[Rfam]
RNA sequence: CCCAUCGACCAGAGGUCGCGUGAAACAUCAGUACUCUUUCGCAGCUUAAGCAGAUGGACGGCACCACGGAAGAGGAAAGGGGAUCACGCCGAAACCGGAGCGGGGCCGCCCCCUCCCCCGGUUGGGCCUUGACUGAACAAGCCAAGGACUGUCACCGUCGUCCGAUUUGCGACGGUGGAGCGCUUUCGAUGAU
Numbered sequence: 001c002c003c004a005u006c007g008a009c010c011a012g013a014g015g016u017c018g019c020g021u022g023a024a025a026c027a028u029c030a031g032u033a034c035u036c037u038u039u040c041g042c043a044g045c046u047u048a049a050g051c052a053g054a055u056g057g058a059c060g061g062c063a064c065c066a067c068g069g070a071a072g073a074g075g076a077a078a079g080g081g082g083a084u085c086a087c088g089c090c091g092a093a094a095c096c097g098g099a100g101c102g103g104g105g106c107c108g109c110c111c112c113c114u115c116c117c118c119c120g121g122u123u124g125g126g127c128c129u130u131g132a133c134u135g136a137a138c139a140a141g142c143c144a145a146g147g148a149c150u151g152u153c154a155c156c157g158u159c160g161u162c163c164g165a166u167u168u169g170c171g172a173c174g175g176u177g178g179a180g181c182g183c184u185u186u187c188g189a190u191g192a193u
Base pairs, nucleotide, nucleotide: 006188007187008186011184012183018089019088020087021086022085023084026081034074035073036072037071038070039069040068041067093123094122095121096120097119098118100116102114103113104112124150125149127147128146129145130144131143133141134140152178153177154176155175156174157173158172159171160170161169
Record summary
The family of this 193-nucleotide RNA sequence from Parascardovia denticolens is "Lysine riboswitch aptamer". Riboswitches are metabolite binding domains within certain messenger RNAs that serve as precision sensors for their corresponding targets. NCBI's taxonomy places the organism under Bacteria, Bacillati, Actinomycetota, Bifidobacteriaceae, Parascardovia denticolens.